[Rfam]
Nucleotides: 090
Stems, first nucleotide, its partner, number of pairs: 006085008020034004036070003039066002043064003049059002
Number, partner (000 for none) and nucleotide at each position: 001000u002000c003000c004000c005000g006085u007084u008083c009082c010081a011080u012079g013078g014000g015000a016000g017000a018000g019000c020034g021033c022032a023031g024000a025000u026000u027000a028000a029000g030000u031023c032022u033021g034020c035000c036070g037069c038068c039066g040065a041000a042000g043064g044063c045062g046000c047000a048000a049059u050058u051000u052000c053000a054000c055000c056000c057000g058050a059049a060000a061000a062045c063044g064043c065040u066039c067000a068038g069037g070036c071000a072000a073000a074000a075000g076000g077000a078013c079012c080011a081010u082009g083008g084007a085006a086000c087000c088000g089000a090000g

This 90-nucleotide RNA sequence from Dechloromonas sp. TW-R-39-2 belongs to the Rfam family "Glycine riboswitch aptamer". Rfam describes the family as follows. This family represents the bacterial glycine riboswitch. The pairing is the family consensus, mapped onto this sequence. Gene Ontology term of the family: glycine biosynthetic process.